RNA sequence: UGGCGCCCAAACAGGGACCUGGACACGGGGGAAAAAGUGAGGAAGAAGGCACUAAAGUCAGCCGAAAGUGAAAGUGUAAGAAAUGCCUUUGGACGUCGUGGGAGCCUGCCGCGUUGGAACCAGAGGUGAGUAACAGUGUCUGAUUAUGGGACAAGAAUUAAGCCAGCAUCAAAUUUAUGUAGGGCAAUUAAAAGAGGCUUUAAAAACACGAGGAGUAAAGGUUAAAAGUAAUGAUUUAAGUUUUUUGAUUUUGUAAAAGAAACCUGCCCUU
Numbered sequence: 001u002g003g004c005g006c007c008c009a010a011a012c013a014g015g016g017a018c019c020u021g022g023a024c025a026c027g028g029g030g031g032a033a034a035a036a037g038u039g040a041g042g043a044a045g046a047a048g049g050c051a052c053u054a055a056a057g058u059c060a061g062c063c064g065a066a067a068g069u070g071a072a073a074g075u076g077u078a079a080g081a082a083a084u085g086c087c088u089u090u091g092g093a094c095g096u097c098g099u100g101g102g103a104g105c106c107u108g109c110c111g112c113g114u115u116g117g118a119a120c121c122a123g124a125g126g127u128g129a130g131u132a133a134c135a136g137u138g139u140c141u142g143a144u145u146a147u148g149g150g151a152c153a154a155g156a157a158u159u160a161a162g163c164c165a166g167c168a169u170c171a172a173a174u175u176u177a178u179g180u181a182g183g184g185c186a187a188u189u190a191a192a193a194g195a196g197g198c199u200u201u202a203a204a205a206a207c208a209c210g211a212g213g214a215g216u217a218a219a220g221g222u223u224a225a226a227a228g229u230a231a232u233g234a235u236u237u238a239a240g241u242u243u244u245u246u247g248a249u250u251u252u253g254u255a256a257a258a259g260a261a262a263c264c265u266g267c268c269c270u271u
Base pairs, nucleotide, nucleotide: 006031007030008029015024038046084128085127086126087125088124092120094117097113098112099111100110101109136152137151139150140149141148142147159202160201161200162198163197164196209247210246211245212244213243214242215241216240219237220236221235222234223233224232256271257270259268
RNA: Mason-Pfizer monkey virus packaging signal
Organism: Rhinopithecus roxellana